[Rfam]
RNA: SAM riboswitch aptamer (S box leader)
RNA sequence: UUUUCAUCAAGAGCAGUUGAGGGAUUGGCCCGAUGAAACUGCAGCAACCCCCCUUUCCAACGGGAUAGGUGCUAAUUCCUACGGUGUAUACCGGCAGAUGAACG
Numbered sequence: 001u002u003u004u005c006a007u008c009a010a011g012a013g014c015a016g017u018u019g020a021g022g023g024a025u026u027g028g029c030c031c032g033a034u035g036a037a038a039c040u041g042c043a044g045c046a047a048c049c050c051c052c053c054u055u056u057c058c059a060a061c062g063g064g065a066u067a068g069g070u071g072c073u074a075a076u077u078c079c080u081a082c083g084g085u086g087u088a089u090a091c092c093g094g095c096a097g098a099u100g101a102a103c104g
Stems, first nucleotide, its partner, number of pairs: 001104001003102006013042005021031003025081001027079002043073004048069002051064003077096001082093004